Rfam assigns this 87-nucleotide RNA from Lathyrus oleraceus to the family "Small nucleolar RNA Z221/R21b".
The source organism's lineage runs through Eukaryota, Viridiplantae, Streptophyta, Gunneridae and Lathyrus.
RNA sequence: UGGCUAUGAUGAAUUAUAGAGAUAGUCAUGCACCACUCUGAUUUCUAGUGCUGAUAAUUUUCUCAUACCCAUUAUUUUUCUGAGCUA
Numbered sequence: 001u002g003g004c005u006a007u008g009a010u011g012a013a014u015u016a017u018a019g020a021g022a023u024a025g026u027c028a029u030g031c032a033c034c035a036c037u038c039u040g041a042u043u044u045c046u047a048g049u050g051c052u053g054a055u056a057a058u059u060u061u062c063u064c065a066u067a068c069c070c071a072u073u074a075u076u077u078u079u080c081u082g083a084g085c086u087a
Stems, first nucleotide, its partner, number of pairs: 001087004

Pairs were carried over by alignment from the consensus structure, which was predicted with WAR. On this family, see Chen et al., Nucleic Acids Res 2003: "The high diversity of snoRNAs in plants: identification and comparative study of 120 snoRNA genes from Oryza sativa". Gene Ontology terms of the family: nucleolus and RNA processing.